[Rfam]
RNA sequence: AGCCAUGUGGUAAGCACAAAGCGAACUAUUCUUUCGCCUUUUACUAAAGAAUACCGUGUGCUUGCCACAAUCAAUGGCAUACGCUUAUUUUUGGAGGGGUUUCCUCGACUGAGGAAGCU
Number, nucleotide and partner (000 for none) at each position: 001a000002g000003c077004c076005a075006u074007g000008u067009g066010g065011u064012a063013a062014g061015c060016a059017c058018a057019a000020a000021g000022c000023g000024a000025a000026c000027u053028a052029u051030u050031c049032u048033u047034u046035c000036g000037c000038c000039u000040u000041u000042u000043a000044c000045u000046a034047a033048a032049g031050a030051a029052u028053a027054c000055c000056g000057u018058g017059u016060g015061c014062u013063u012064g011065c010066c009067a008068c000069a000070a000071u000072c000073a000074a006075u005076g004077g003078c000079a000080u000081a000082c000083g000084c000085u000086u000087a000088u000089u000090u000091u000092u000093g000094g000095a119096g000097g000098g000099g118100u117101u116102u115103c114104c113105u000106c000107g000108a000109c000110u000111g000112a000113g104114g103115a102116a101117g100118c099119u095
RNA: U5 spliceosomal RNA